The record is a 189-nucleotide sequence, which matches "RT-7 RNA" in Rfam. The base pairs follow the family's consensus structure, which is taken from published work. Rfam's curators put it in the seed alignment.
[Rfam]
Nucleotides: 189
Base pairs, nucleotide, nucleotide: 001038002037008032009031010030011029012028013027014026017024050183051182052181053180054179055178056177058115059114060113061112062111063110064109065108077104078103079102080101082100083099084098086096087095131166132165134163135162136161137160138159139158140157144153145152146151
Number, partner (000 for none) and nucleotide at each position: 001038a002037u003000c004000a005000g006000a007000g008032u009031c010030u011029g012028g013027g014026a015000a016000c017024g018000c019000c020000a021000a022000g023000g024017c025000u026014u027013c028012c029011c030010g031009g032008a033000g034000u035000g036000u037002a038001u039000c040000c041000c042000g043000u044000a045000a046000a047000u048000u049000c050183a051182g052181c053180a054179g055178c056177c057000c058115a059114c060113u061112g062111c063110c064109u065108g066000g067000g068000u069000a070000a071000a072000a073000g074000g075000g076000a077104c078103g079102u080101u081000a082100u083099c084098c085000c086096g087095u088000c089000a090000u091000c092000c093000g094000a095087a096086u097000c098084g099083g100082g101080g102079g103078c104077g105000u106000u107000c108065c109064a110063g111062g112061u113060a114059g115058u116000u117000a118000u119000c120000g121000u122000a123000u124000a125000c126000c127000a128000a129000u130000c131166u132165g133000u134163c135162c136161g137160g138159u139158g140157g141000c142000u143000a144153a145152u146151c147000u148000u149000a150000c151146g152145a153144u154000u155000u156000u157140c158139c159138a160137u161136c162135g163134g164000c165132c166131a167000u168000u169000u170000a171000u172000u173000g174000a175000g176000c177056g178055g179054c180053u181052g182051c183050u184000a185000u186000g187000u188000u189000c